[Rfam]
RNA sequence: CAAAGCCUCCCAGAGAGGGCCGAACUGGGAGGUUAUGAAG
Numbered sequence: 001c002a003a004a005g006c007c008u009c010c011c012a013g014a015g016a017g018g019g020c021c022g023a024a025c026u027g028g029g030a031g032g033u034u035a036u037g038a039a040g
Base pairs, nucleotide, nucleotide: 001037002036006032007031008030009029010028011027012026013025
The record is a 40-nucleotide RNA from Theileria cervi, which matches "Tick-borne Flavivirus short stem-loop SL6" in Rfam. Rfam's curators write: In different studies, a short stem-loop, named SL6 has been observed in at least Tick-borne encephalitis virus, Langat virus and Omsk hemorrhagic fever. SL6 shows a high heterogeneity among different tick-borne flaviviruses, but is structurally conserved supported by multiple covariation. Taxonomically the source falls in Theileria (Eukaryota, Sar, Piroplasmida, Theileriidae).